[Rfam]
RNA sequence: GCCAAUGAUGAGUUGCCCUGUCAAUUAGGUGUAGAUCGCCUCAAGUCCCUGAAUUUCAGGGAGAACCUACUUGGGGUCCUACAUUGGAGUGAGAUAUAUGGGCUUUUACUGAGGU
Numbered sequence: 001g002c003c004a005a006u007g008a009u010g011a012g013u014u015g016c017c018c019u020g021u022c023a024a025u026u027a028g029g030u031g032u033a034g035a036u037c038g039c040c041u042c043a044a045g046u047c048c049c050u051g052a053a054u055u056u057c058a059g060g061g062a063g064a065a066c067c068u069a070c071u072u073g074g075g076g077u078c079c080u081a082c083a084u085u086g087g088a089g090u091g092a093g094a095u096a097u098a099u100g101g102g103c104u105u106u107u108a109c110u111g112a113g114g115u
Stems, first nucleotide, its partner, number of pairs: 001115003047061005
About this RNA: The record is a 115-nucleotide RNA from Setaria italica, which matches "Small nucleolar RNA Z278" in Rfam. The family's consensus secondary structure was predicted with PFOLD. snoZ278 is a C/D box small nucleolar RNA. Its methylation guide targets have not been reported. The match comes from Rfam's covariance-model search (64 bits). NCBI's taxonomy places the organism under Eukaryota, Streptophyta, Mesangiospermae, commelinids, Setaria.